[Rfam]
RNA sequence: CCCGCCCGGGUCCGUGGUUGCGUCGGAUCGCAGUGCUCGUCAGGAGCACGACAGGCGGUCCGGCUAGCCGAUGCCAGGCGCAGGCGAAACGGCCCACGUAAGGCGACUUCUCGUCGACCGAUCACGGUGCGCCUUAGAGGUAAGUCCUGCCCCGCCGGGGGAUCCGACAUCCUCCGAACAGGGAGAAGGGCAGUAGUGGCGAGAGCGCCGCGAGUCCCUCAGCAGGCGGAUGUGGGGACGAAGACCAGGUCGGCCGGGCGGG
Numbered sequence: 001c002c003c004g005c006c007c008g009g010g011u012c013c014g015u016g017g018u019u020g021c022g023u024c025g026g027a028u029c030g031c032a033g034u035g036c037u038c039g040u041c042a043g044g045a046g047c048a049c050g051a052c053a054g055g056c057g058g059u060c061c062g063g064c065u066a067g068c069c070g071a072u073g074c075c076a077g078g079c080g081c082a083g084g085c086g087a088a089a090c091g092g093c094c095c096a097c098g099u100a101a102g103g104c105g106a107c108u109u110c111u112c113g114u115c116g117a118c119c120g121a122u123c124a125c126g127g128u129g130c131g132c133c134u135u136a137g138a139g140g141u142a143a144g145u146c147c148u149g150c151c152c153c154g155c156c157g158g159g160g161g162a163u164c165c166g167a168c169a170u171c172c173u174c175c176g177a178a179c180a181g182g183g184a185g186a187a188g189g190g191c192a193g194u195a196g197u198g199g200c201g202a203g204a205g206c207g208c209c210g211c212g213a214g215u216c217c218c219u220c221a222g223c224a225g226g227c228g229g230a231u232g233u234g235g236g237g238a239c240g241a242a243g244a245c246c247a248g249g250u251c252g253g254c255c256g257g258g259c260g261g262g
Stems, first nucleotide, its partner, number of pairs: 001262009012253003015247005071233003074084001076134007093127002098122001102118001104116004125240001146226005151183003187219004196211005
raiA RNA: a 262-nucleotide sequence from Actinomadura sp. KC345. The match comes from Rfam's covariance-model search (141 bits).